[Rfam]
RNA sequence: GAAAAGGGUGCUCGUCCUGGCACAUUUCCUAUCCUGGAAUAUUAGUGCAGACGCAUUGCACUGUUUGGCCCAUCCGUACGCCGCUUCUCCCCUCUCCUCACGGUUGGGGGCUGGAGUGGUGGGGGGCGUGCGUGAAAUUGCCGCCCUUUGGAUCACUUUUCUGUGCGGGGCUUUUCUCAACAAAACAGUCCAGUGGGGUAUGGCUUUGCAUAUCCAGUGCAUAAUUUUUGUUCUUGGGGCUCGCGGCUGUACCUAGUUGGUACGCCUUGGAUUG
Numbered sequence: 001g002a003a004a005a006g007g008g009u010g011c012u013c014g015u016c017c018u019g020g021c022a023c024a025u026u027u028c029c030u031a032u033c034c035u036g037g038a039a040u041a042u043u044a045g046u047g048c049a050g051a052c053g054c055a056u057u058g059c060a061c062u063g064u065u066u067g068g069c070c071c072a073u074c075c076g077u078a079c080g081c082c083g084c085u086u087c088u089c090c091c092c093u094c095u096c097c098u099c100a101c102g103g104u105u106g107g108g109g110g111c112u113g114g115a116g117u118g119g120u121g122g123g124g125g126g127c128g129u130g131c132g133u134g135a136a137a138u139u140g141c142c143g144c145c146c147u148u149u150g151g152a153u154c155a156c157u158u159u160u161c162u163g164u165g166c167g168g169g170g171c172u173u174u175u176c177u178c179a180a181c182a183a184a185a186c187a188g189u190c191c192a193g194u195g196g197g198g199u200a201u202g203g204c205u206u207u208g209c210a211u212a213u214c215c216a217g218u219g220c221a222u223a224a225u226u227u228u229u230g231u232u233c234u235u236g237g238g239g240c241u242c243g244c245g246g247c248u249g250u251a252c253c254u255a256g257u258u259g260g261u262a263c264g265c266c267u268u269g270g271a272u273u274g
Stems, first nucleotide, its partner, number of pairs: 008220005013053004054195005060189006196215007238272001240270002243268001245266003249263004

The record is a 274-nucleotide RNA sequence from Drosophila willistoni, which matches "U11 spliceosomal RNA" in Rfam. The family has 72 seed sequences and 2,595 matches in Rfam 15.1. By type it is a spliceosomal small nuclear RNA. Rfam's curators put it in the seed alignment. A reference for the family is Marz et al. (2008), "Evolution of spliceosomal snRNA genes in metazoan animals", J Mol Evol. The organism belongs to Sophophora, within Eukaryota.